[Rfam]
RNA sequence: UGGAAAGUUGAUUCGCAUUAAUUUUUAAGACAUAAUUAAGUGCUACUUUGCUUUCCUAUAUUAAAAAUGCUUUCUGAUGACUGAAAUAUGUUUAGGGUUUUUUUUCAGACAGAUACGAAGCUUACAAAU
Numbered sequence: 001u002g003g004a005a006a007g008u009u010g011a012u013u014c015g016c017a018u019u020a021a022u023u024u025u026u027a028a029g030a031c032a033u034a035a036u037u038a039a040g041u042g043c044u045a046c047u048u049u050g051c052u053u054u055c056c057u058a059u060a061u062u063a064a065a066a067a068u069g070c071u072u073u074c075u076g077a078u079g080a081c082u083g084a085a086a087u088a089u090g091u092u093u094a095g096g097g098u099u100u101u102u103u104u105u106c107a108g109a110c111a112g113a114u115a116c117g118a119a120g121c122u123u124a125c126a127a128a129u
Stems, first nucleotide, its partner, number of pairs: 002056006015043004023035002067123001069121005081108003086103001088101001

Small Cajal body specific RNA 8: a 129-nucleotide RNA from Pediculus humanus. A reference for the family is Darzacq et al. (2002), "Cajal body-specific small nuclear RNAs: a novel class of 2'-O-methylation and pseudouridylation guide RNAs", EMBO J. Gene Ontology terms of the family: nucleolus, RNA processing and Cajal body. It is annotated as a small Cajal body RNA. NCBI's taxonomy places the organism under Eukaryota, Ecdysozoa, Phthiraptera, Pediculus, Pediculus humanus.